[Rfam]
RNA sequence: UUUUGAUUGGAUGAUGGCUGCCACGUGUCAAGUUCUGAUUGGAUGUUGACUCUGUAGACGAUGAAAAUGUAUUCUUGUUGUCAACGUCCAAUCAGAACGUGACACGUGACAGUCAUCAUCC
Numbered sequence: 001u002u003u004u005g006a007u008u009g010g011a012u013g014a015u016g017g018c019u020g021c022c023a024c025g026u027g028u029c030a031a032g033u034u035c036u037g038a039u040u041g042g043a044u045g046u047u048g049a050c051u052c053u054g055u056a057g058a059c060g061a062u063g064a065a066a067a068u069g070u071a072u073u074c075u076u077g078u079u080g081u082c083a084a085c086g087u088c089c090a091a092u093c094a095g096a097a098c099g100u101g102a103c104a105c106g107u108g109a110c111a112g113u114c115a116u117c118a119u120c121c
Base pairs, nucleotide, nucleotide: 020110022108023107025105026104029101030100033097034096035095036094038092039091040090
Source information:
A member of the RNA family "MIR1520 microRNA precursor family" from Glycine soja, 121 nucleotides long. Pairs were carried over by alignment from the consensus structure, which was predicted with RNAalifold. Taxonomically the source falls in Glycine subgen. Soja (Eukaryota, Streptophyta, Streptophytina, Spermatophyta). Its family is annotated with miRNA-mediated post-transcriptional gene silencing and RISC complex in the Gene Ontology. A search with the family's covariance model found it, with a score of 106 bits.